[Rfam]
RNA: Fluoride riboswitch aptamer (crcB RNA motif)
Organism: Methylacidimicrobium cyclopophantes
RNA sequence: GUCGUUCCGGGCGAUGGGGCUCGCCGAGACAAGACCGCUCGUAAAGUCGAGCUGAUAGCUCCUACUUCGGG
Numbered sequence: 001g002u003c004g005u006u007c008c009g010g011g012c013g014a015u016g017g018g019g020c021u022c023g024c025c026g027a028g029a030c031a032a033g034a035c036c037g038c039u040c041g042u043a044a045a046g047u048c049g050a051g052c053u054g055a056u057a058g059c060u061c062c063u064a065c066u067u068c069g070g071g
Stems, first nucleotide, its partner, number of pairs: 010025004016062006037052004